The record is an 83-nucleotide RNA sequence from Lophotis ruficrista, which matches "Small nucleolar RNA SNORD45" in Rfam.
Pairs were carried over by alignment from the consensus structure, which was predicted with PFOLD.
It is annotated as a C/D-box small nucleolar RNA.
Its family is annotated with nucleolus and RNA processing in the Gene Ontology.

RNA sequence: GGUCUGUGAUGGCUGUUGGCAUGUAUUGUCUGAGCGUAAAUCUGAAGACGCUCGGUUCAGCUCUAGAAUUACUCUGAGACCCA
Numbered sequence: 001g002g003u004c005u006g007u008g009a010u011g012g013c014u015g016u017u018g019g020c021a022u023g024u025a026u027u028g029u030c031u032g033a034g035c036g037u038a039a040a041u042c043u044g045a046a047g048a049c050g051c052u053c054g055g056u057u058c059a060g061c062u063c064u065a066g067a068a069u070u071a072c073u074c075u076g077a078g079a080c081c082c083a
Base pairs, nucleotide, nucleotide: 001081002080003079004078